A member of the RNA family "SAM-I/IV (S-adenosyl methionine) riboswitch aptamer" from Flavobacterium sp. BFFFF2, 96 nucleotides long. Rfam 15.1 lists 567 matches to the family in 508 species. On this family, see Trausch et al., PNAS 2014: "Structural basis for diversity in the SAM clan of riboswitches". NCBI's taxonomy places the organism under Bacteria, Pseudomonadati, Flavobacteriia, Flavobacteriaceae, Flavobacterium.
RNA sequence: GUAGUGCAUUAAGAAACUCAAAAAGAGUUACCAACCGAGUAAAGAUCCACGGUGGUAAGGCAAUGCGGGCCGAAAAGGUCAAAAAAUCUGAACGAA
Numbered sequence: 001g002u003a004g005u006g007c008a009u010u011a012a013g014a015a016a017c018u019c020a021a022a023a024a025g026a027g028u029u030a031c032c033a034a035c036c037g038a039g040u041a042a043a044g045a046u047c048c049a050c051g052g053u054g055g056u057a058a059g060g061c062a063a064u065g066c067g068g069g070c071c072g073a074a075a076a077g078g079u080c081a082a083a084a085a086a087u088c089u090g091a092a093c094g095a096a
Base pairs, nucleotide, nucleotide: 006066007065008064009063010062015029016028017027018026019025030056031055032054035052036051037050039047045089068080069079070078071077